[Rfam]
RNA sequence: ACGAGUUCUCCAUACUUCAUUACAUUCCAUAAAAUAUAACAGCAAUAUGGGAAGUAAAGAAGCAUGGAGUUCGACU
Numbered sequence: 001a002c003g004a005g006u007u008c009u010c011c012a013u014a015c016u017u018c019a020u021u022a023c024a025u026u027c028c029a030u031a032a033a034a035u036a037u038a039a040c041a042g043c044a045a046u047a048u049g050g051g052a053a054g055u056a057a058a059g060a061a062g063c064a065u066g067g068a069g070u071u072c073g074a075c076u
Stems, first nucleotide, its partner, number of pairs: 008069006015062004020057004025052001027050005
The family of this 76-nucleotide RNA sequence from Orchesella cincta is "mir-1 microRNA precursor family". The match comes from Rfam's covariance-model search (52 bits). Its family is annotated with RISC complex and miRNA-mediated post-transcriptional gene silencing in the Gene Ontology. This family represents the microRNA (miRNA) mir-1 family. miRNAs are transcribed as ~70nt precursors (modelled here) and subsequently processed by the Dicer enzyme to give a ~22nt product.